Notes
Rfam assigns this 162-nucleotide RNA from Oscillibacter hominis to the family "M-box riboswitch aptamer (ykoK leader)".

[Rfam]
RNA sequence: AAUACUGUCCGGUAGGUAAGGCUACCACAGGGAUAUGGGUUGCUGCCGCAGAGUGAUGGAGACAUCAUGAGAGGGUUUGAACAGGCGAUAUCGAAACCAAGGUAUCAUCUAAUGCAACUGCACCGCCUUGUGAGGCUAAAGCUUGAACGGUGGAACGGUCGC
Numbered sequence: 001a002a003u004a005c006u007g008u009c010c011g012g013u014a015g016g017u018a019a020g021g022c023u024a025c026c027a028c029a030g031g032g033a034u035a036u037g038g039g040u041u042g043c044u045g046c047c048g049c050a051g052a053g054u055g056a057u058g059g060a061g062a063c064a065u066c067a068u069g070a071g072a073g074g075g076u077u078u079g080a081a082c083a084g085g086c087g088a089u090a091u092c093g094a095a096a097c098c099a100a101g102g103u104a105u106c107a108u109c110u111a112a113u114g115c116a117a118c119u120g121c122a123c124c125g126c127c128u129u130g131u132g133a134g135g136c137u138a139a140a141g142c143u144u145g146a147a148c149g150g151u152g153g154a155a156c157g158g159u160c161g162c
Base pairs, nucleotide, nucleotide: 005158006157007156008155010153011148013100015143016142017141020137021136022135026132027131028130029129030128031127032126039118040117041116042115043114045077046074047073049071055066056065057064058063084109085108087106090103091102092101

Annotation:
M-box riboswitch, also know as ykoK leader is described as a metaloregulatory RNA that sense divalent metals and function as a genetic control element of genes related to divalent metal transport in bacteria. It was first reported upstream of the B.subtilis ykoK gene and genes with related functions in other bacteria.